[Rfam]
RNA: Small nucleolar RNA SNORD45
Organism: Thinocorus orbignyianus
RNA sequence: GGUCUAUGAUGAGUUUUGUAUGUACUAUCUGAGUAUAAAUAUGAAGAUUAUCAGUUUAGCUCUAGAAUUACUCUGAGACCUG
Dot-bracket structure: ((((........................................................................))))..